[Rfam]
RNA sequence: CAUGAUGACGACGAUCAUUCUCGUAGUAGGAACGCGCGUGGGCAAGGCGGUGUAACCGCCGGGCGAGAGCACCCCAUGCGCGAAAACAGGCUCCCUCGGGGGCCUUUUUUAUUGGCCGAAA
Dot-bracket structure: ........(................)..((..((((((((((...(((((.....)))))..((....))..))))))))))...(.(((((((....)))))))).........))....
RNA: Rhizobiales sRNA Atu_C8